[Rfam]
RNA sequence: GGAAGGGCGACCGACCGCGUGAAGGAAGGCUAGGAGAAACCCGCGAGCCAAUGGACAAGAACCACAUAGAAGGCCGACACGGCACGACGAGCUGGCACAACACAGCGAAGUCGUCUGGUUUACCCGUGGAGGUAAAUGCGGUGGUUGCGCGGGGAAGCAUCGUGCC
Numbered sequence: 001g002g003a004a005g006g007g008c009g010a011c012c013g014a015c016c017g018c019g020u021g022a023a024g025g026a027a028g029g030c031u032a033g034g035a036g037a038a039a040c041c042c043g044c045g046a047g048c049c050a051a052u053g054g055a056c057a058a059g060a061a062c063c064a065c066a067u068a069g070a071a072g073g074c075c076g077a078c079a080c081g082g083c084a085c086g087a088c089g090a091g092c093u094g095g096c097a098c099a100a101c102a103c104a105g106c107g108a109a110g111u112c113g114u115c116u117g118g119u120u121u122a123c124c125c126g127u128g129g130a131g132g133u134a135a136a137u138g139c140g141g142u143g144g145u146u147g148c149g150c151g152g153g154g155a156a157g158c159a160u161c162g163u164g165c166c
Stems, first nucleotide, its partner, number of pairs: 001016002005012002028166003036158001040153006046146005062141002065138003073133003078128005085113004091106004

A member of the RNA family "Group II catalytic intron D1-D4-3" from Verrucomicrobiales bacterium VVV1, 166 nucleotides long.
The base pairs follow the family's consensus structure.
The match comes from Rfam's covariance-model search (115 bits).
The organism belongs to Verrucomicrobiales, within Bacteria.